[Rfam]
RNA sequence: ACUGGAGGACUAAUCAGACUGAGUCUGAAGAGUGGGACUCAGUUGACAGUGAUCUCCUAGAAGAAAAGGGAUGGAGAGAGCAGUCCUAUGUAGAAGAAAGCAAAGGGCCCACUGUGCCAUCCAACAGUG
Numbered sequence: 001a002c003u004g005g006a007g008g009a010c011u012a013a014u015c016a017g018a019c020u021g022a023g024u025c026u027g028a029a030g031a032g033u034g035g036g037a038c039u040c041a042g043u044u045g046a047c048a049g050u051g052a053u054c055u056c057c058u059a060g061a062a063g064a065a066a067a068g069g070g071a072u073g074g075a076g077a078g079a080g081c082a083g084u085c086c087u088a089u090g091u092a093g094a095a096g097a098a099a100g101c102a103a104a105g106g107g108c109c110c111a112c113u114g115u116g117c118c119a120u121c122c123a124a125c126a127g128u129g
Stems, first nucleotide, its partner, number of pairs: 002060002004057005017044003021040006068122003079113002083108005091102001
Small Cajal body specific RNA 4: a 129-nucleotide RNA from Gallus gallus. The family's consensus secondary structure was predicted with RNAfold. From the family's description: scaRNAs are a specific class of small nuclear RNAs which localise to the Cajal bodies and guide the modification of RNA polymerase II transcribed spliceosomal RNAs U1, U2, U4, U5 and U12. ACA26 belongs to the H/ACA box class of guide RNAs as it has the predicted hairpin-hinge-hairpin-tail structure, conserved H/ACA-box motifs and is found associated with GAR1. Lineage of the source: Eukaryota > Euteleostomi > Archelosauria > Phasianinae > Gallus. Rfam's curators put it in the seed alignment.